[Rfam]
RNA: Small nucleolar RNA snoR53Y
Organism: Macleaya cordata
RNA sequence: GUUCCCAGUGAUGUUAAACAAACCAUGCUAAUUCUGAGAUUCUUUUUUAUGAAUGAAUCUUAUUCUUAUCUAGAUCUACUGUGGGAACU
Numbered sequence: 001g002u003u004c005c006c007a008g009u010g011a012u013g014u015u016a017a018a019c020a021a022a023c024c025a026u027g028c029u030a031a032u033u034c035u036g037a038g039a040u041u042c043u044u045u046u047u048u049a050u051g052a053a054u055g056a057a058u059c060u061u062a063u064u065c066u067u068a069u070c071u072a073g074a075u076c077u078a079c080u081g082u083g084g085g086a087a088c089u
Stems, first nucleotide, its partner, number of pairs: 001088007